[Rfam]
RNA: Small nucleolar RNA SNORA42/SNORA80 family
Organism: Castor canadensis
RNA sequence: GCAUGGUAAUGGACUUAUGGCAGACACUUCUCUGGGGACCUCUAAUGGUGCACCUGUGCCAGAGUGAACUCCAGCCUCUAACCAUUGUCCAGCUAUCUUACCUGUGUGCUGUGAGCACUGAAGAAGGUUGCACAAUU
Numbered sequence: 001g002c003a004u005g006g007u008a009a010u011g012g013a014c015u016u017a018u019g020g021c022a023g024a025c026a027c028u029u030c031u032c033u034g035g036g037g038a039c040c041u042c043u044a045a046u047g048g049u050g051c052a053c054c055u056g057u058g059c060c061a062g063a064g065u066g067a068a069c070u071c072c073a074g075c076c077u078c079u080a081a082c083c084a085u086u087g088u089c090c091a092g093c094u095a096u097c098u099u100a101c102c103u104g105u106g107u108g109c110u111g112u113g114a115g116c117a118c119u120g121a122a123g124a125a126g127g128u129u130g131c132a133c134a135a136u137u
Stems, first nucleotide, its partner, number of pairs: 001059004005054003015048004020043001022041002025037001072130006083120002088115001090111004